Record summary: This 105-nucleotide RNA from Aneurinibacillus migulanus belongs to the Rfam family "Glycine riboswitch aptamer". Rfam 15.1 lists 9,425 matches to the family in 5,228 species. The base pairs follow the family's consensus structure. The organism belongs to Aneurinibacillus, within Bacteria.
[Rfam]
RNA sequence: AUGACUGUUGCGGGAGAGACCUGGCGCAUUGCCUGGCACCGAAGGAGCAACUCCCAAAAAUCCAUGGGAGAGAAUCUCUCAGGUAAAGUGAACCGCAAUAGGACG
Numbered sequence: 001a002u003g004a005c006u007g008u009u010g011c012g013g014g015a016g017a018g019a020c021c022u023g024g025c026g027c028a029u030u031g032c033c034u035g036g037c038a039c040c041g042a043a044g045g046a047g048c049a050a051c052u053c054c055c056a057a058a059a060a061u062c063c064a065u066g067g068g069a070g071a072g073a074a075u076c077u078c079u080c081a082g083g084u085a086a087a088g089u090g091a092a093c094c095g096c097a098a099u100a101g102g103a104c105g
Stems, first nucleotide, its partner, number of pairs: 006100008020036002023033001038084003041080002045078003052071002